[Rfam]
Shown here is a 108-nucleotide RNA sequence from Rhizobium sp. PDO1-076, a member of the family "Rhizobiales sRNA Atu_At1". Pairs were carried over by alignment from the consensus structure, which was predicted with CMfinder. It is annotated as a small RNA. It scores 95 bits against the family's covariance model.
RNA sequence: ACGCAGGCCGUGCCAACCGGACGCGACGGAAUAUCGGGGAAUACGGAGAUUUUUCCGGUUUCUCUCCGUGGCCAACGAAGCGGCAGGCGAGCCCCAUCCGUCCGGCUU
Numbered sequence: 001a002c003g004c005a006g007g008c009c010g011u012g013c014c015a016a017c018c019g020g021a022c023g024c025g026a027c028g029g030a031a032u033a034u035c036g037g038g039g040a041a042u043a044c045g046g047a048g049a050u051u052u053u054u055c056c057g058g059u060u061u062c063u064c065u066c067c068g069u070g071g072c073c074a075a076c077g078a079a080g081c082g083g084c085a086g087g088c089g090a091g092c093c094c095c096a097u098c099c100g101u102c103c104g105g106c107u108u
Stems, first nucleotide, its partner, number of pairs: 006107004011023002014020001025102006036095004042070007071084003